[Rfam]
RNA sequence: UGCCGUGAGGCCCCGGUCCGCAGGGCGACGGCCCUGGCGCACCUUCCCCGGCGCCAGGUCCGUCGAUCUGCGGGCCGGGACGUGACGGCAU
Numbered sequence: 001u002g003c004c005g006u007g008a009g010g011c012c013c014c015g016g017u018c019c020g021c022a023g024g025g026c027g028a029c030g031g032c033c034c035u036g037g038c039g040c041a042c043c044u045u046c047c048c049c050g051g052c053g054c055c056a057g058g059u060c061c062g063u064c065g066a067u068c069u070g071c072g073g074g075c076c077g078g079g080a081c082g083u084g085a086c087g088g089c090a091u
Stems, first nucleotide, its partner, number of pairs: 001090006010081001012079013028063004033058008
The record is a 91-nucleotide RNA sequence from Actinomycetospora cinnamomea, which matches "mraW RNA" in Rfam.
Rfam 15.1 lists 851 matches to the family in 821 species.
Lineage of the source: Bacteria > Actinomycetota > Actinomycetes > Pseudonocardiales > Actinomycetospora.